[Rfam]
RNA sequence: AGCACUGCAUGGUAUCUGCACCCAGUCAUUUCUCUGGCUGGGUUGUUCAUUACGCAGUGCUAGAGCAAUUCUGUAUCUGGCAUCGUUGGUUUCCUCACUGCAGUGUGUGUGAUACCUGGUAUUUUUACUGAGACAAUG
Dot-bracket structure: .((((((..........(((.(((((((......))))).)).)))........))))))...((.(((((.(......((((...................)))).........).)).))).))............
This 138-nucleotide RNA sequence from Erpetoichthys calabaricus belongs to the Rfam family "Small nucleolar RNA SNORA8". Rfam 15.1 lists 1,490 matches to the family in 610 species. ACA8 is a member of the H/ACA class of snoRNA that guide the sites of modification of uridines to pseudouridines. The match comes from Rfam's covariance-model search (73 bits). Its family is annotated with nucleolus and RNA processing in the Gene Ontology. By type it is an H/ACA-box small nucleolar RNA.